[Rfam]
This 377-nucleotide sequence from Pseudoponticoccus marisrubri belongs to the Rfam family "Bacterial RNase P class A". By type it is a ribozyme. The match comes from Rfam's covariance-model search (274 bits). Lineage of the source: Bacteria > Pseudomonadati > Alphaproteobacteria > Rhodobacterales > Pseudoponticoccus.
RNA sequence: GCGGAAGGCCGGGCGGCCGCUCCUUCGGGAGAGGAAAGUCCGGACUCGCCGAAGCACCGGUGCCGGGUAACGCCCGGGCAGGGCAACCUGACGGAAAGCGCCACAGAAAACAGACCGCCCGGCGCCCUGGCGUCGGGUCAGGGUGAAACGGUGGGGUAAGAGCCCACCGGGGGGCUGGCAACAGCGCCCGCAUGGCAAGCCCCACCGGGAGCAAUGCCAAAUAGGGACCCCGUGCCGUGCGCGGCAGGGCGGCUUCGGCCCGAGGGGUCCGGGUUGGCAGCUUGAACCGCGCGGGCAACCGCCGGUCCAGAGGAAUGGUCGUCUGAGGGCGGGCAACCGUCCGAUAACAGAAUCCGGCUUACAGGCCUUCCGCGCAU
Numbered sequence: 001g002c003g004g005a006a007g008g009c010c011g012g013g014c015g016g017c018c019g020c021u022c023c024u025u026c027g028g029g030a031g032a033g034g035a036a037a038g039u040c041c042g043g044a045c046u047c048g049c050c051g052a053a054g055c056a057c058c059g060g061u062g063c064c065g066g067g068u069a070a071c072g073c074c075c076g077g078g079c080a081g082g083g084c085a086a087c088c089u090g091a092c093g094g095a096a097a098g099c100g101c102c103a104c105a106g107a108a109a110a111c112a113g114a115c116c117g118c119c120c121g122g123c124g125c126c127c128u129g130g131c132g133u134c135g136g137g138u139c140a141g142g143g144u145g146a147a148a149c150g151g152u153g154g155g156g157u158a159a160g161a162g163c164c165c166a167c168c169g170g171g172g173g174g175c176u177g178g179c180a181a182c183a184g185c186g187c188c189c190g191c192a193u194g195g196c197a198a199g200c201c202c203c204a205c206c207g208g209g210a211g212c213a214a215u216g217c218c219a220a221a222u223a224g225g226g227a228c229c230c231c232g233u234g235c236c237g238u239g240c241g242c243g244g245c246a247g248g249g250c251g252g253c254u255u256c257g258g259c260c261c262g263a264g265g266g267g268u269c270c271g272g273g274u275u276g277g278c279a280g281c282u283u284g285a286a287c288c289g290c291g292c293g294g295g296c297a298a299c300c301g302c303c304g305g306u307c308c309a310g311a312g313g314a315a316u317g318g319u320c321g322u323c324u325g326a327g328g329g330c331g332g333g334c335a336a337c338c339g340u341c342c343g344a345u346a347a348c349a350g351a352a353u354c355c356g357g358c359u360u361a362c363a364g365g366c367c368u369u370c371c372g373c374g375c376a377u
Stems, first nucleotide, its partner, number of pairs: 001373010011362001012323007020031004036360003040357005045211003053255002058207005063077005078092001079090004093202002098200002100196003115142002117138009150168006169191001170189003174185004215279004225270006247261004286306004291302004
Dot-bracket structure: ((((((((((((((((((.((((....))))....[[[.[[[[[(((.....[[...((((((((((.....)))))(((((....)))).)((...(((((............(((((((((((....)))))))))..)).......((((((.......))))))((((.((((....)))).))).)..)))..))))))))).)))...((((......((((((................((((...]]..))))...)))))).....))))......((((.((((....))))))))..........))))))).............................]]]]]]]].).))))))))))....